Shown here is a 75-nucleotide RNA sequence from Sporosarcina limicola, a member of the family "Group II catalytic intron D1-D4-1". Rfam 15.1 lists 2,508 matches to the family in 1,144 species. Rfam's curators write: Group II introns are found in rRNA, tRNA and mRNA of organelles in fungi, plants and protists, and also in mRNA in bacteria. Pairs were carried over by alignment from the consensus structure.
RNA sequence: AAAACUCGGUUGAAAUAAGAUUUGUCGUGAGAAGUCAGCAGAAACCAUAGUAGUUUCCUUACGGAAAUGAAGGGU
Numbered sequence: 001a002a003a004a005c006u007c008g009g010u011u012g013a014a015a016u017a018a019g020a021u022u023u024g025u026c027g028u029g030a031g032a033a034g035u036c037a038g039c040a041g042a043a044a045c046c047a048u049a050g051u052a053g054u055u056u057c058c059u060u061a062c063g064g065a066a067a068u069g070a071a072g073g074g075u
Base pairs, nucleotide, nucleotide: 001022002021005019006018008016010014035042036041044075045074046073053068054067055066056065057064058063